[Rfam]
Nucleotides: 077
Stems, first nucleotide, its partner, number of pairs: 001077003005073002
Number, partner (000 for none) and nucleotide at each position: 001077c002076a003075g004000u005073u006072c007000g008000u009000g010000g011000g012000a013000u014000g015000a016000u017000g018000u019000a020000u021000u022000a023000c024000c025000a026000c027000a028000a029000g030000g031000c032000g033000c034000u035000a036000a037000a038000g039000c040000u041000g042000c043000a044000a045000g046000c047000u048000u049000u050000u051000c052000u053000u054000g055000a056000c057000a058000a059000g060000g061000c062000u063000g064000a065000a066000g067000a068000u069000g070000a071000u072006g073005g074000u075003u076002u077001g